[Rfam]
RNA sequence: UGUUUAAGGGGUCAAACUGUACGUUAUAUGUGUAAAUACAGAAAUUCAUAAGCGUAUAGCUUUUCCCCUUAAAAG
Number, nucleotide and partner (000 for none) at each position: 001u000002g000003u073004u072005u071006a070007a069008g000009g067010g066011g065012u000013c000014a062015a000016a000017c059018u058019g057020u056021a055022c000023g000024u052025u051026a000027u050028a049029u048030g047031u000032g000033u000034a000035a000036a000037u000038a000039c000040a000041g000042a000043a000044a000045u000046u000047c030048a029049u028050a027051a025052g024053c000054g000055u021056a020057u019058a018059g017060c000061u000062u014063u000064u000065c011066c010067c009068c000069u007070u006071a005072a004073a003074a000075g000
Shown here is a 75-nucleotide RNA sequence from Drosophila albomicans, a member of the family "mir-965 microRNA precursor family". The source organism's lineage runs through Eukaryota, Pterygota, Neoptera, Drosophilini and Drosophila. Rfam 15.1 lists 224 matches to the family in 178 species.